[Rfam]
RNA sequence: CGAUCAGGCCUUUCAGGCAUCCUCUCCUAAAACUUUCAAGGCCGCCCCUCGGGGCGGCCCUUUUUUUUGCGUAUU
Numbered sequence: 001c002g003a004u005c006a007g008g009c010c011u012u013u014c015a016g017g018c019a020u021c022c023u024c025u026c027c028u029a030a031a032a033c034u035u036u037c038a039a040g041g042c043c044g045c046c047c048c049u050c051g052g053g054g055c056g057g058c059c060c061u062u063u064u065u066u067u068u069g070c071g072u073a074u075u
Stems, first nucleotide, its partner, number of pairs: 008018004040059008

Rfam assigns this 75-nucleotide RNA sequence from Sphingobium sp. SCG-1 to the family "Makes More Granules Regulator RNA (mmgR)". Clan: suhB sRNA clan. Gene Ontology terms of the family: response to nitrogen compound, DNA-templated transcription, termination and protein binding. Lineage of the source: Bacteria > Pseudomonadota > Sphingomonadales > Sphingobiaceae > Sphingobium.